[Rfam]
Nucleotides: 359
Base pairs, nucleotide, nucleotide: 001355002354003353004352005351006350007349020328021327022326023325024324025323026322027321028320033315034314035313037311038310039309040308043302044301045300046299047298048069049068050067051066052065056082058080059079060078061077062076119139120138121137123135124134140174141173142172143171144170148167149166150165151164155188156187157186158185159184160183161182191221192220193219194218195217197215198214199213202236205233207231241275242274243273244272245271246270247269248268252264253263254262255294256293257292258291259288332348333347334346335345336344
Number, partner (000 for none) and nucleotide at each position: 001355g002354g003353g004352g005351g006350c007349g008000u009000u010000c011000u012000g013000g014000u015000u016000u017000c018000g019000a020328c021327g022326g023325g024324a025323u026322g027321u028320u029000c030000a031000a032000c033315g034314c035313g036000c037311u038310g039309g040308u041000u042000g043302c044301a045300c046299g047298u048069g049068g050067a051066g052065g053000u054000u055000g056082a057000u058080c059079g060078g061077c062076u063000g064000g065052c066051c067050u068049c069048c070000u071000a072000a073000a074000a075000a076062a077061g078060c079059c080058g081000c082056u083000c084000a085000a086000a087000a088000c089000a090000a091000a092000u093000a094000a095000a096000u097000g098000c099000a100000g101000a102000c103000u104000c105000u106000a107000a108000c109000g110000a111000g112000c113000u114000c115000g116000c117000a118000c119139u120138g121137g122000c123135c124134g125000c126000u127000u128000a129000a130000u131000u132000g133000a134124c135123g136000a137121c138120c139119a140174c141173g142172u143171c144170a145000a146000a147000a148167c149166c150165c151164c152000g153000a154000c155188g156187c157186c158185u159184g160183c161182u162000a163000g164151g165150g166149g167148g168000g169000c170144u171143g172142g173141c174140g175000a176000c177000a178000c179000u180000u181000c182161a183160g184159c185158a186157g187156g188155c189000u190000g191221g192220a193219a194218u195217c196000a197215a198214g199213g200000u201000c202236g203000g204000g205233u206000a207231g208000c209000c210000g211000g212000g213199c214198c215197u216000c217195g218194a219193u220192u221191u222000g223000a224000g225000a226000c227000u228000a229000a230000a231207c232000a233205g234000g235000a236202u237000u238000c239000u240000a241275g242274g243273a244272u245271g246270c247269g248268u249000a250000a251000c252264g253263c254262u255294g256293c257292a258291u259288g260000u261000g262254g263253g264252c265000c266000a267000c268248g269247c270246g271245c272244a273243u274242c275241c276000g277000a278000a279000a280000u281000a282000c283000c284000a285000g286000a287000u288259c289000g290000c291258a292257u293256g294255c295000u296000a297000a298047a299046c300045g301044u302043g303000u304000a305000g306000a307000u308040a309039c310038c311037a312000a313035c314034g315033c316000c317000g318000a319000c320028g321027a322026u323025g324024u325023u326022u327021c328020g329000g330000a331000c332348a333347g334346g335345g336344g337000u338000u339000c340000g341000a342000c343000u344336c345335c346334c347333c348332u349007c350006g351005c352004c353003u354002c355001c356000a357000c358000u359000u

The family of this 359-nucleotide RNA sequence from Luteolibacter pohnpeiensis is "transfer-messenger RNA". Taxonomically the source falls in Luteolibacter (Bacteria, Verrucomicrobiia, Verrucomicrobiales, Verrucomicrobiaceae). Gene Ontology term of the family: RNA catabolic process. It scores 164 bits against the family's covariance model.